[Rfam]
RNA sequence: CUUGGUGGGCUGGUGUCUGUCUGCCUGUCUGUGCCUGCUGUACAGGUUCCAGGAAGUUCUGCACAGCAAGUGUAGACAGGCAGACACACGGCAACUCCCGG
Numbered sequence: 001c002u003u004g005g006u007g008g009g010c011u012g013g014u015g016u017c018u019g020u021c022u023g024c025c026u027g028u029c030u031g032u033g034c035c036u037g038c039u040g041u042a043c044a045g046g047u048u049c050c051a052g053g054a055a056g057u058u059c060u061g062c063a064c065a066g067c068a069a070g071u072g073u074a075g076a077c078a079g080g081c082a083g084a085c086a087c088a089c090g091g092c093a094a095c096u097c098c099c100g101g
Base pairs, nucleotide, nucleotide: 018086019085022082023081024080025079026078027077028076029075030074034070036068037067038066039065040064041063043061044060045059
The record is a 101-nucleotide RNA sequence from Oncorhynchus kisutch, which matches "mir-214 microRNA precursor family" in Rfam. Pairs were carried over by alignment from the consensus structure, which was predicted with RNAalifold. Taxonomically the source falls in Oncorhynchus (Eukaryota, Metazoa, Deuterostomia, Vertebrata). Gene Ontology terms of the family: miRNA-mediated post-transcriptional gene silencing and RISC complex.